[Rfam]
RNA sequence: UUGGUUAGAACUGGACUCAGGUUGUCACCGCGCAGGUGAUAACAAAAAUGCUCGCCACGCCGGCAGCGAGCAACCAACGGCAGAAGCAUUCUGCCCCGACCUGAGUCAGGUCGACGCGAUAUAAACAGUCAAC
Numbered sequence: 001u002u003g004g005u006u007a008g009a010a011c012u013g014g015a016c017u018c019a020g021g022u023u024g025u026c027a028c029c030g031c032g033c034a035g036g037u038g039a040u041a042a043c044a045a046a047a048a049u050g051c052u053c054g055c056c057a058c059g060c061c062g063g064c065a066g067c068g069a070g071c072a073a074c075c076a077a078c079g080g081c082a083g084a085a086g087c088a089u090u091c092u093g094c095c096c097c098g099a100c101c102u103g104a105g106u107c108a109g110g111u112c113g114a115c116g117c118g119a120u121a122u123a124a125a126c127a128g129u130c131a132a133c
Stems, first nucleotide, its partner, number of pairs: 021043009049072007079095006098112006
RNA: rmf RNA